[Rfam]
RNA sequence: GAGGCUGUGAUGAUUGGCGCAGGGGUACGGACCUCAGCUGAAUCAUGGGAGCUGAAUGUAUGUGUGUCUCUGCCCUCCUGCAUGUGGCAGGUUGAUGGGGAGCACUUACAUGAGACUGGUGCCUAAAUCUGAGCCUC
Numbered sequence: 001g002a003g004g005c006u007g008u009g010a011u012g013a014u015u016g017g018c019g020c021a022g023g024g025g026u027a028c029g030g031a032c033c034u035c036a037g038c039u040g041a042a043u044c045a046u047g048g049g050a051g052c053u054g055a056a057u058g059u060a061u062g063u064g065u066g067u068c069u070c071u072g073c074c075c076u077c078c079u080g081c082a083u084g085u086g087g088c089a090g091g092u093u094g095a096u097g098g099g100g101a102g103c104a105c106u107u108a109c110a111u112g113a114g115a116c117u118g119g120u121g122c123c124u125a126a127a128u129c130u131g132a133g134c135c136u137c
Stems, first nucleotide, its partner, number of pairs: 001137005